[Rfam]
Source information:
mir-181 microRNA precursor family: a 74-nucleotide sequence. For this family Rfam cites "microRNAs: tiny regulators with great potential" (Ambros, Cell, 2001). Pairs were carried over by alignment from the consensus structure, which was predicted with PFOLD.
RNA sequence: GGUCACAAUGAACAUUCAUUGCUGUCGGUGGGUUUAACUAUGUGGACAAGCUCACUGAACAAUGAAUGCAACUG
Numbered sequence: 001g002g003u004c005a006c007a008a009u010g011a012a013c014a015u016u017c018a019u020u021g022c023u024g025u026c027g028g029u030g031g032g033u034u035u036a037a038c039u040a041u042g043u044g045g046a047c048a049a050g051c052u053c054a055c056u057g058a059a060c061a062a063u064g065a066a067u068g069c070a071a072c073u074g
Base pairs, nucleotide, nucleotide: 006074007073013068014067015066016065017064018063019062020061021060025058026057027056028055029054030053032051033050034049035048